[Rfam]
RNA sequence: GGUUUCCAUUGGCGCAAAUCCAAUCUUAUAAUUUAAGAUGAGAAAAAAUUCCCCAUUGGUAGCAAAUGCUUAUCCAUUAAGCGGGGAA
Numbered sequence: 001g002g003u004u005u006c007c008a009u010u011g012g013c014g015c016a017a018a019u020c021c022a023a024u025c026u027u028a029u030a031a032u033u034u035a036a037g038a039u040g041a042g043a044a045a046a047a048a049u050u051c052c053c054c055a056u057u058g059g060u061a062g063c064a065a066a067u068g069c070u071u072a073u074c075c076a077u078u079a080a081g082c083g084g085g086g087a088a
Stems, first nucleotide, its partner, number of pairs: 009023004051086004055077002058074005
A member of the RNA family "Plastid-rps12 3UTR RNA" from Gossypium aridum, 88 nucleotides long. The family has 1,299 seed sequences and 1,710 matches in Rfam 15.1. The base pairs follow the family's consensus structure, which was predicted with LocARNA. On this family, see Richter et al., Plant Commun 2023: "Retrograde signaling in plants: A critical review focusing on the GUN pathway and beyond". By type it is a cis-regulatory element. Plastid rpl20 is a non-coding RNA (ncRNA) recognised in plastids. It was found in the three prime untranslated region (3UTR) of rps12 gene, its 3UTR location sugest a role in transcript maduration. The source organism's lineage runs through Eukaryota, Viridiplantae, Streptophyta, Streptophytina and Gossypium.